[Rfam]
RNA: MIR4416 microRNA precursor family
RNA sequence: ACCUAUGCUUCGGGUGAGAGAAACACGUAUCAGAAUUCAUCUUGUUUUAGACACCAUAAUUUUCUAUGUAAGGAAGAAAAAAUGGUUGUUCUUUAUUUUUGAUCCUAUGAUACAUGUCGCUCUCACCUGAAGCAUAGCUGC
Number, nucleotide and partner (000 for none) at each position: 001a000002c000003c137004u136005a135006u134007g133008c000009u131010u130011c129012g128013g127014g126015u125016g124017a123018g122019a121020g120021a000022a000023a117024c116025a000026c000027g113028u112029a111030u110031c109032a108033g100034a099035a098036u000037u000038c000039a000040u000041c000042u000043u000044g000045u000046u000047u000048u000049a000050g000051a000052c000053a000054c000055c000056a000057u000058a000059a000060u000061u000062u000063u000064c000065u000066a000067u000068g000069u000070a000071a000072g000073g000074a000075a000076g000077a000078a000079a000080a000081a000082a000083u000084g000085g000086u000087u000088g000089u000090u000091c000092u000093u000094u000095a000096u000097u000098u035099u034100u033101g000102a000103u000104c000105c000106u000107a000108u032109g031110a030111u029112a028113c027114a000115u000116g024117u023118c000119g000120c020121u019122c018123u017124c016125a015126c014127c013128u012129g011130a010131a009132g000133c007134a006135u005136a004137g003138c000139u000140g000141c000